This 73-nucleotide sequence from Jeotgalibaca porci belongs to the Rfam family "tRNA".
The match comes from Rfam's covariance-model search (65 bits).
The source organism's lineage runs through Bacteria, Bacillota, Lactobacillales, Carnobacteriaceae and Jeotgalibaca.
[Rfam]
RNA sequence: GGUCCCGUAGCUCAGUGGAGAGAGCACUCGUUUCCUAAACGAGGUGUCGGAGGUUCGAUCCCUCUCGGGACCG
Numbered sequence: 001g002g003u004c005c006c007g008u009a010g011c012u013c014a015g016u017g018g019a020g021a022g023a024g025c026a027c028u029c030g031u032u033u034c035c036u037a038a039a040c041g042a043g044g045u046g047u048c049g050g051a052g053g054u055u056c057g058a059u060c061c062c063u064c065u066c067g068g069g070a071c072c073g
Base pairs, nucleotide, nucleotide: 001072002071003070004069005068006067007066010025011024012023013022027043028042029041030040031039049065050064051063052062053061
Rfam classes the family as a transfer RNA.